Annotation
The record is a 178-nucleotide sequence from Mariprofundus sp. EBB-1, which matches "6S / SsrS RNA" in Rfam. The family's consensus secondary structure is taken from published work. Lineage of the source: Bacteria > Pseudomonadati > Pseudomonadota > Mariprofundales > Mariprofundus.

[Rfam]
RNA sequence: GCGCCUCUGCGUUGAGCGAAUGGCAUAAAUGUUGCCUGAGCCGAUACUUGUCGAAUGGGAGCUUACCUAUCUUGGCUGUUGUGCGUCCCUUUUUGGGAUACCUGAUGCCCGGUUGCGGCACCCACCUCUUGUUAGAGGGUUCGUCGACUGUUUGCCACCACGCCAACGCGGAGGUUCC
Numbered sequence: 001g002c003g004c005c006u007c008u009g010c011g012u013u014g015a016g017c018g019a020a021u022g023g024c025a026u027a028a029a030u031g032u033u034g035c036c037u038g039a040g041c042c043g044a045u046a047c048u049u050g051u052c053g054a055a056u057g058g059g060a061g062c063u064u065a066c067c068u069a070u071c072u073u074g075g076c077u078g079u080u081g082u083g084c085g086u087c088c089c090u091u092u093u094u095g096g097g098a099u100a101c102c103u104g105a106u107g108c109c110c111g112g113u114u115g116c117g118g119c120a121c122c123c124a125c126c127u128c129u130u131g132u133u134a135g136a137g138g139g140u141u142c143g144u145c146g147a148c149u150g151u152u153u154g155c156c157a158c159c160a161c162g163c164c165a166a167c168g169c170g171g172a173g174g175u176u177c178c
Stems, first nucleotide, its partner, number of pairs: 003175012017162002032147003037143006057123003061119003071112002074109003081101002086097003
Rfam 15.1 lists 5,006 matches to the family in 4,638 species. The family's RNA type in Rfam is non-coding RNA gene.